[Rfam]
RNA sequence: CUGUGACCUGGUUCAAGUAAUCCAGGAUAGGCUGUGUGAUCAGAAUGGCCUAUUCUUGAUUACUUGCACUGGGGGGCAG
Numbered sequence: 001c002u003g004u005g006a007c008c009u010g011g012u013u014c015a016a017g018u019a020a021u022c023c024a025g026g027a028u029a030g031g032c033u034g035u036g037u038g039a040u041c042a043g044a045a046u047g048g049c050c051u052a053u054u055c056u057u058g059a060u061u062a063c064u065u066g067c068a069c070u071g072g073g074g075g076g077c078a079g
Stems, first nucleotide, its partner, number of pairs: 002078003007073006014066009024056010
Dot-bracket structure: .(((..((((((.(((((((((.((((((((((.............)))))))))).))))))))).))))))..))).
Overview:
A member of the RNA family "mir-26 microRNA precursor family" from Atractosteus spatula, 79 nucleotides long. Its family is annotated with RISC complex and miRNA-mediated post-transcriptional gene silencing in the Gene Ontology.